[Rfam]
RNA: Rhodo-rpoB RNA
Organism: Paracoccus zeaxanthinifaciens
Nucleotides: 092
Base pairs, nucleotide, nucleotide: 001043002042003041004040005039010031011030012029013028014027015026016025017024063092065090066089067088069086070085071084072083073082
Number, partner (000 for none) and nucleotide at each position: 001043g002042g003041c004040u005039c006000g007000g008000g009000a010031g011030c012029c013028g014027u015026g016025c017024g018000g019000u020000g021000g022000g023000a024017c025016g026015c027014a028013u029012g030011g031010c032000a033000c034000g035000a036000a037000u038000g039005g040004a041003g042002c043001c044000u045000c046000a047000c048000c049000c050000c051000u052000a053000c054000a055000u056000u057000c058000g059000u060000a061000g062000g063092c064000c065090c066089g067088u068000u069086c070085c071084g072083g073082g074000g075000g076000c077000c078000c079000c080000g081000a082073c083072c084071c085070g086069g087000a088067a089066c090065g091000c092063g